Shown here is a 92-nucleotide RNA sequence from Probosciger aterrimus, a member of the family "Small nucleolar SNORD12/SNORD106". NCBI's taxonomy places the organism under Eukaryota, Craniata, Amniota, Sauropsida, Probosciger. The literature on the family includes a 2001 paper in EMBO J by Huttenhofer et al., "RNomics: an experimental approach that identifies 201 candidates for novel, small, non-messenger RNAs in mouse".
RNA sequence: ACUGGUAUAAAUGAUGACUAAAUUUUUUCCCCACCAGAGCGACAGUGUUGAUUUCUUGCUGUUCCAAGCCAGAUCAUGUCUGAUGCGCCAGU
Numbered sequence: 001a002c003u004g005g006u007a008u009a010a011a012u013g014a015u016g017a018c019u020a021a022a023u024u025u026u027u028u029c030c031c032c033a034c035c036a037g038a039g040c041g042a043c044a045g046u047g048u049u050g051a052u053u054u055c056u057u058g059c060u061g062u063u064c065c066a067a068g069c070c071a072g073a074u075c076a077u078g079u080c081u082g083a084u085g086c087g088c089c090a091g092u
Stems, first nucleotide, its partner, number of pairs: 001092006008085002